[Rfam]
RNA sequence: GAGGACCCAGCCAAGGGCUGGUAGUAGCCAUGGGAUCUCCAACUGCAUGCCAGAGCAACUGGGAGACUUUGACAGCUCUCGUCAGCGUAGUGCCUGCAGCUGCCACUCGCCUUUCCCAUAGUA
Numbered sequence: 001g002a003g004g005a006c007c008c009a010g011c012c013a014a015g016g017g018c019u020g021g022u023a024g025u026a027g028c029c030a031u032g033g034g035a036u037c038u039c040c041a042a043c044u045g046c047a048u049g050c051c052a053g054a055g056c057a058a059c060u061g062g063g064a065g066a067c068u069u070u071g072a073c074a075g076c077u078c079u080c081g082u083c084a085g086c087g088u089a090g091u092g093c094c095u096g097c098a099g100c101u102g103c104c105a106c107u108c109g110c111c112u113u114u115c116c117c118a119u120a121g122u123a
Base pairs, nucleotide, nucleotide: 011033012032016029017028018027019026020025062116063115064112065111075103076102078096081093
RNA: Small nucleolar RNA SNORA44
Organism: Phyllostomus discolor